[Rfam]
RNA sequence: UAUAAUCUUCAGGGCAGGGUGAAAGUCCCUACCGGCGGUAAUACGAUUUUUUUCGUUAGCCCGCGUGCGAAAGCUGACUUGGUGAGAUUCCAAGGCCGACAGUUAGAGUCUGGAUGAUAGAAGAUAAUG
Numbered sequence: 001u002a003u004a005a006u007c008u009u010c011a012g013g014g015c016a017g018g019g020u021g022a023a024a025g026u027c028c029c030u031a032c033c034g035g036c037g038g039u040a041a042u043a044c045g046a047u048u049u050u051u052u053u054c055g056u057u058a059g060c061c062c063g064c065g066u067g068c069g070a071a072a073g074c075u076g077a078c079u080u081g082g083u084g085a086g087a088u089u090c091c092a093a094g095g096c097c098g099a100c101a102g103u104u105a106g107a108g109u110c111u112g113g114a115u116g117a118u119a120g121a122a123g124a125u126a127a128u129g
Stems, first nucleotide, its partner, number of pairs: 003127001005125006017029003031109002033098002035064004059096002067074002078094005100112003
Source information
A member of the RNA family "FMN riboswitch aptamer (RFN element)" from Marinisporobacter balticus, 129 nucleotides long. A search with the family's covariance model found it, with a score of 116 bits. NCBI's taxonomy places the organism under Bacteria, Bacillati, Bacillota, Peptostreptococcales, Marinisporobacter. The base pairs follow the family's consensus structure, which is taken from published work.